[Rfam]
RNA sequence: CGCCCCGCGGUCAAAAGCCAAGAAUCCCGGGAGAGAACUUUCCCCGACCUCCCCCAAACCCCCGCCACGAGGCCUCCCCGCCCCGCCCUCACCCACAAGGGUGAUCACGCCCAACUCAGCUUGUGUACAGGCUGCUUCACGCACCAGUCUCAGCGAAACAACCCCACACAUGCAUCGGCCCUCGCCGGGACGCCAAUCCCAGUGCGAGGGCCUGACCACCAAGGAAGAAGCCCCUUCCCG
Numbered sequence: 001c002g003c004c005c006c007g008c009g010g011u012c013a014a015a016a017g018c019c020a021a022g023a024a025u026c027c028c029g030g031g032a033g034a035g036a037a038c039u040u041u042c043c044c045c046g047a048c049c050u051c052c053c054c055c056a057a058a059c060c061c062c063c064g065c066c067a068c069g070a071g072g073c074c075u076c077c078c079c080g081c082c083c084c085g086c087c088c089u090c091a092c093c094c095a096c097a098a099g100g101g102u103g104a105u106c107a108c109g110c111c112c113a114a115c116u117c118a119g120c121u122u123g124u125g126u127a128c129a130g131g132c133u134g135c136u137u138c139a140c141g142c143a144c145c146a147g148u149c150u151c152a153g154c155g156a157a158a159c160a161a162c163c164c165c166a167c168a169c170a171u172g173c174a175u176c177g178g179c180c181c182u183c184g185c186c187g188g189g190a191c192g193c194c195a196a197u198c199c200c201a202g203u204g205c206g207a208g209g210g211c212c213u214g215a216c217c218a219c220c221a222a223g224g225a226a227g228a229a230g231c232c233c234c235u236u237c238c239c240g
Stems, first nucleotide, its partner, number of pairs: 007076001009074004089104006119154003123150001177212005183206003187200004223238005

This 240-nucleotide RNA belongs to the Rfam family "Streptomyces sRNA 4677". On this family, see Hindra et al., PLoS One 2014: "Complex intra-operonic dynamics mediated by a small RNA in Streptomyces coelicolor". From the family's description: Located in the intergenic region between anti-sigma factor SCO4677 gene and a putative regulatory protein gene SCO4676. scr4677 expression requires the SCO4677 activity and scr4677 sRNA itself seem to affect the levels of the SCO4676-associated transcripts. By type it is a small RNA.